[Rfam]
RNA sequence: GGAAUUCAGGUUUUCUCCUCCUCCCGGAAACCUGAUCGGUUUCAAAACGACCUCCUCCCCGUUUUGAAACACCUAACGAAGCCCACCGGAUUUCCUCCCCCGGUGGGCUUUCGUC
Numbered sequence: 001g002g003a004a005u006u007c008a009g010g011u012u013u014u015c016u017c018c019u020c021c022u023c024c025c026g027g028a029a030a031c032c033u034g035a036u037c038g039g040u041u042u043c044a045a046a047a048c049g050a051c052c053u054c055c056u057c058c059c060c061g062u063u064u065u066g067a068a069a070c071a072c073c074u075a076a077c078g079a080a081g082c083c084c085a086c087c088g089g090a091u092u093u094c095c096u097c098c099c100c101c102g103g104u105g106g107g108c109u110u111u112c113g114u115c
Stems, first nucleotide, its partner, number of pairs: 007034003011029003039070010079110011
About this RNA:
Rfam assigns this 115-nucleotide RNA sequence from Cohaesibacter celericrescens to the family "Alphaproteobacterial ar14". Rfam links the family to the GO term biological process involved in symbiotic interaction. It scores 81 bits against the family's covariance model.